[Rfam]
This 244-nucleotide RNA from Streptomyces sp. WM4235 belongs to the Rfam family "Streptomyces sRNA 4677". The organism belongs to Streptomyces, within Bacteria. The match comes from Rfam's covariance-model search (90 bits). Located in the intergenic region between anti-sigma factor SCO4677 gene and a putative regulatory protein gene SCO4676. scr4677 expression requires the SCO4677 activity and scr4677 sRNA itself seem to affect the levels of the SCO4676-associated transcripts.

RNA sequence: GGACCUGGUGACCCGGGAUGCUUCUUUCCUUGCUUCGCAGUACCAGGGGAGAGAACCUGCCCUACCCCACCAGCCUCCCGCCGAGGCGCCCUCACUCACACGAGUGAAUGGCCCCAACUUGGCUGGCGGGACGGCCCGUUGCCUGGCAUAUGCUCGGCCCCGACAACUCCAGACACAGGACGGCCCCCGGCCGGGACGGCAAUCCCGAUCGAGGGCCUGACCACGAGAAGGAUCCAACUUCCCG
Numbered sequence: 001g002g003a004c005c006u007g008g009u010g011a012c013c014c015g016g017g018a019u020g021c022u023u024c025u026u027u028c029c030u031u032g033c034u035u036c037g038c039a040g041u042a043c044c045a046g047g048g049g050a051g052a053g054a055a056c057c058u059g060c061c062c063u064a065c066c067c068c069a070c071c072a073g074c075c076u077c078c079c080g081c082c083g084a085g086g087c088g089c090c091c092u093c094a095c096u097c098a099c100a101c102g103a104g105u106g107a108a109u110g111g112c113c114c115c116a117a118c119u120u121g122g123c124u125g126g127c128g129g130g131a132c133g134g135c136c137c138g139u140u141g142c143c144u145g146g147c148a149u150a151u152g153c154u155c156g157g158c159c160c161c162g163a164c165a166a167c168u169c170c171a172g173a174c175a176c177a178g179g180a181c182g183g184c185c186c187c188c189g190g191c192c193g194g195g196a197c198g199g200c201a202a203u204c205c206c207g208a209u210c211g212a213g214g215g216c217c218u219g220a221c222c223a224c225g226a227g228a229a230g231g232a233u234c235c236a237a238c239u240u241c242c243c244g
Stems, first nucleotide, its partner, number of pairs: 008224003016082002019080002092107006122158005182217005188211002193206004227242001228240003